[Rfam]
RNA sequence: UAAAGUAGUGGGCAAAGCUAUAGUGAUAUAGUGACGCAAAGCUCUAGAGCCUUAGUAUUUAAGGUAGUCAGCUGCAUUU
Numbered sequence: 001u002a003a004a005g006u007a008g009u010g011g012g013c014a015a016a017g018c019u020a021u022a023g024u025g026a027u028a029u030a031g032u033g034a035c036g037c038a039a040a041g042c043u044c045u046a047g048a049g050c051c052u053u054a055g056u057a058u059u060u061a062a063g064g065u066a067g068u069c070a071g072c073u074g075c076a077u078u079u
Stems, first nucleotide, its partner, number of pairs: 012037002017032006040073004047069002049065003
RNA: c-di-GMP-I riboswitch aptamer
Organism: Firmicutes bacterium CAG:582